The record is a 76-nucleotide RNA from Sphingomonas montanisoli, which matches "Makes More Granules Regulator RNA (mmgR)" in Rfam. It scores 54 bits against the family's covariance model.
RNA sequence: AGAUCGGGCCUUUCAGGCAUCCUCUCCUAAAACUUUUCAGGCCGGUCCUUCGGGAUCGGCCCUUUUUUUGUCUUGC
Numbered sequence: 001a002g003a004u005c006g007g008g009c010c011u012u013u014c015a016g017g018c019a020u021c022c023u024c025u026c027c028u029a030a031a032a033c034u035u036u037u038c039a040g041g042c043c044g045g046u047c048c049u050u051c052g053g054g055a056u057c058g059g060c061c062c063u064u065u066u067u068u069u070g071u072c073u074u075g076c
Stems, first nucleotide, its partner, number of pairs: 008018004040061009

The pairing is the family consensus, mapped onto this sequence. Rfam's curators write: SuhB later renamed mmgR (makes more granules regulator) was a putative non-coding RNA found multiple times in the Agrobacterium tumefaciens genome and related alpha-proteobacteria. Lineage of the source: Bacteria > Pseudomonadati > Alphaproteobacteria > Sphingomonadales > Sphingomonas. The literature on the family includes a 2018 paper in Microbiology by Ceizel Borella et al., "Expression of the small regulatory RNA gene mmgR is regulated negatively by AniA and positively by NtrC in Sinorhizobium meliloti 2011". The family's RNA type in Rfam is small RNA.